Description: Ascomycota telomerase RNA: a 219-nucleotide part of an RNA from Lasiosphaeris hirsuta. Taxonomically the source falls in Lasiosphaeris (Eukaryota, Fungi, Dikarya, Ascomycota). The base pairs follow the family's consensus structure. By type it is a non-coding RNA gene. On this family, see Qi et al., Nucleic Acids Res 2013: "The common ancestral core of vertebrate and fungal telomerase RNAs".

RNA sequence: UCCGUCACAGUCCUCCGAUCCUAAUUUUCCGCAAGGAAUGUUUCUUGCAAACCGCUCUAGCGGGGCCGGAUCAGCACAACACGUCGCAGCUUCGGAUCCUGUAUCGGGAGUUAUUCCAAGCUUGCCGCGCUUGGGUCAUGUUGUGCUGGCAUCUUGUUGCUCUAGACAAGUCGGUCUCGCCGAGUGAAUUGGCCUCGGAACUUAACCCUAAGUAUACAU
Numbered sequence: 001u002c003c004g005u006c007a008c009a010g011u012c013c014u015c016c017g018a019u020c021c022u023a024a025u026u027u028u029c030c031g032c033a034a035g036g037a038a039u040g041u042u043u044c045u046u047g048c049a050a051a052c053c054g055c056u057c058u059a060g061c062g063g064g065g066c067c068g069g070a071u072c073a074g075c076a077c078a079a080c081a082c083g084u085c086g087c088a089g090c091u092u093c094g095g096a097u098c099c100u101g102u103a104u105c106g107g108g109a110g111u112u113a114u115u116c117c118a119a120g121c122u123u124g125c126c127g128c129g130c131u132u133g134g135g136u137c138a139u140g141u142u143g144u145g146c147u148g149g150c151a152u153c154u155u156g157u158u159g160c161u162c163u164a165g166a167c168a169a170g171u172c173g174g175u176c177u178c179g180c181c182g183a184g185u186g187a188a189u190u191g192g193c194c195u196c197g198g199a200a201c202u203u204a205a206c207c208c209u210a211a212g213u214a215u216a217c218a219u
Stems, first nucleotide, its partner, number of pairs: 009202003015198004
Its family is annotated with telomere maintenance via telomerase, telomerase activity and telomerase catalytic core complex in the Gene Ontology.